Shown here is a 100-nucleotide sequence from Lentibacillus amyloliquefaciens, a member of the family "Purine riboswitch aptamer". The organism belongs to Lentibacillus, within Bacteria. It scores 84 bits against the family's covariance model. The family's consensus secondary structure is taken from published work. Rfam links the family to the GO term purine nucleobase biosynthetic process.

RNA sequence: UAUAAAAUCAUACGCUGCUCUCAUAUAUUUUCGGGGAUAUGGCCUGAAAGUUUCUACCCGGUACCGUAAAUGCCGGACUAUGAGGGAGGAUGGAAUCUCG
Numbered sequence: 001u002a003u004a005a006a007a008u009c010a011u012a013c014g015c016u017g018c019u020c021u022c023a024u025a026u027a028u029u030u031u032c033g034g035g036g037a038u039a040u041g042g043c044c045u046g047a048a049a050g051u052u053u054c055u056a057c058c059c060g061g062u063a064c065c066g067u068a069a070a071u072g073c074c075g076g077a078c079u080a081u082g083a084g085g086g087a088g089g090a091u092g093g094a095a096u097c098u099c100g
Stems, first nucleotide, its partner, number of pairs: 018086008029049007058076006